Overview:
Rfam assigns this 160-nucleotide RNA sequence from Streptomyces davaonensis to the family "c-di-AMP riboswitch aptamer (ydaO/yuaA leader)".
RNA sequence: UCCGCACACUCACCCGUGCACGGCAGGAGCGGGGGACCCACAGGCACAACCGCCUGGUCCGGUCUCCGGAACAGGCUCGGGGUCAAGUCGCGCCCAGCGCGCGGCCGGACAUCUCCAGUCCGAACCCGACAGCUCACCUCGUAGGCGCCGGAGAGGAAUU
Numbered sequence: 001u002c003c004g005c006a007c008a009c010u011c012a013c014c015c016g017u018g019c020a021c022g023g024c025a026g027g028a029g030c031g032g033g034g035g036a037c038c039c040a041c042a043g044g045c046a047c048a049a050c051c052g053c054c055u056g057g058u059c060c061g062g063u064c065u066c067c068g069g070a071a072c073a074g075g076c077u078c079g080g081g082g083u084c085a086a087g088u089c090g091c092g093c094c095c096a097g098c099g100c101g102c103g104g105c106c107g108g109a110c111a112u113c114u115c116c117a118g119u120c121c122g123a124a125c126c127c128g129a130c131a132g133c134u135c136a137c138c139u140c141g142u143a144g145g146c147g148c149c150g151g152a153g154a155g156g157a158a159u160u
Stems, first nucleotide, its partner, number of pairs: 001028003029142006039079001080127003088104004107121004
Record summary:
The organism belongs to Streptomyces davaonensis, within Bacteria.